[Rfam]
Nucleotides: 374
Stems, first nucleotide, its partner, number of pairs: 006024006025372004033352004039332002044068006053061002075328004080111002085106003089102001091100003115132005135324011147307001151303004159290004165283003170277005175194005195251001199246004208239003216234005222229002255268005338347002354366004
Number, partner (000 for none) and nucleotide at each position: 001000g002000a003000a004000a005000a006024c007023a008022u009021g010020g011019g012000u013000g014000a015000g016000a017000a018000u019011c020010c021009c022008a023007u024006g025372c026371c027370c028369c029000g030000a031000a032000a033352c034351c035350c036349u037000a038000a039332g040331g041000g042000u043000u044068c045067c046066u047065c048064c049063g050000g051000c052000a053061g054060g055000c056000u057000c058000g059000u060054c061053c062000g063049c064048g065047g066046a067045g068044g069000g070000u071000u072000a073000g074000u075328c076327u077326g078325g079000a080111c081110c082000u083000a084000a085106g086105g087104u088000c089102a090000g091100g092099c093098u094000g095000a096000a097000a098093a099092g100091c101000g102089u103000a104087g105086u106085c107000g108000a109000u110081g111080g112000a113000u114000a115132a116131c117130a118129g119128g120000u121000c122000a123000a124000c125000a126000u127000u128119c129118c130117u131116g132115u133000a134000c135324c136323g137322g138321u139320g140319a141318u142317g143316u144315u145314u146000u147307g148000g149000g150000a151303a152302g153301g154300g155000g156000g157000a158000c159290g160289g161288a162287g163000a164000a165283g166282g167281c168000u169000a170277g171276c172275c173274a174273a175194g176193c177192c178191a179190g180000a181000c182000g183000c184000u185000g186000g187000u188000u189000a190179c191178u192177g193176g194175u195251u196000c197000a198000a199246g200245c201244g202243u203000u204000u205000c206000g207000a208239g209238g210237c211000a212000u213000u214000g215000a216234g217233g218232a219231g220230c221000g222229g223228u224000g225000a226000a227000a228223a229222c230220g231219c232218u233217c234216u235000g236000a237210g238209c239208u240000g241000a242000g243202g244201c245200g246199u247000g248000a249000g250000c251195a252000c253000g254000a255268g256267c257266u258265g259264c260000c261000a262000c263000g264259g265258c266257a267256g268255c269000g270000a271000a272000g273174u274173u275172g276171g277170u278000a279000a280000u281167g282166u283165c284000a285000u286000g287162c288161u289160u290159c291000c292000a293000a294000g295000a296000a297000a298000a299000g300154c301153c302152c303151u304000a305000u306000a307147c308000c309000c310000g311000u312000u313000a314145a315144g316143g317142c318141a319140u320139c321138a322137u323136c324135g325078c326077c327076a328075g329000u330000a331040c332039c333000c334000g335000a336000a337000a338347c339346c340000g341000a342000c343000a344000c345000a346339g347338g348000u349036g350035g351034g352033g353000u354366g355365g356364u357363a358000g359000a360000g361000a362000a363357u364356a365355c366354c367000g368000a369028g370027g371026g372025g373000c374000g
Shown here is a 374-nucleotide part of an RNA from cyanobiont of Ornithocercus magnificus, a member of the family "Bacterial large subunit ribosomal RNA". Its Rfam clan is "LSU clan". Taxonomically the source falls in Synechococcales (Bacteria, Bacillati, Cyanobacteriota, Cyanophyceae). The literature on the family includes a 2001 paper in Science by Yusupov et al., "Crystal structure of the ribosome at 5.5 A resolution". It scores 2792 bits against the family's covariance model.